RNA sequence: ACAACGGCUCUUUUCAGAGCCACCACAUUUUAACAAAAUGGAGCUG
Numbered sequence: 001a002c003a004a005c006g007g008c009u010c011u012u013u014u015c016a017g018a019g020c021c022a023c024c025a026c027a028u029u030u031u032a033a034c035a036a037a038a039u040g041g042a043g044c045u046g
Stems, first nucleotide, its partner, number of pairs: 006021006
RNA: Histone 3' UTR stem-loop
Organism: Chiloscyllium punctatum